[Rfam]
RNA sequence: UGCAUAUUUUGGUCAGGCGGAGCUCGACCGCCCAUUCAAGAAAUGAUCCACUUCAUAGAAGAUCAUCGUGCAGAUCACGGCGUCGAGCCGAUUUGCAGGGGUCUGCCGAUUGCCCCA
Numbered sequence: 001u002g003c004a005u006a007u008u009u010u011g012g013u014c015a016g017g018c019g020g021a022g023c024u025c026g027a028c029c030g031c032c033c034a035u036u037c038a039a040g041a042a043a044u045g046a047u048c049c050a051c052u053u054c055a056u057a058g059a060a061g062a063u064c065a066u067c068g069u070g071c072a073g074a075u076c077a078c079g080g081c082g083u084c085g086a087g088c089c090g091a092u093u094u095g096c097a098g099g100g101g102u103c104u105g106c107c108g109a110u111u112g113c114c115c116c117a
Stems, first nucleotide, its partner, number of pairs: 016032005079116002082113001089112002092109002095106004
The family of this 117-nucleotide sequence from Sagittula marina is "ALIL pseudoknot". The literature on the family includes a 2008 paper in J Biol Chem by Mazauric et al., "Apical loop-internal loop RNA pseudoknots: a new type of stimulator of -1 translational frameshifting in bacteria". It is annotated as a cis-regulatory element.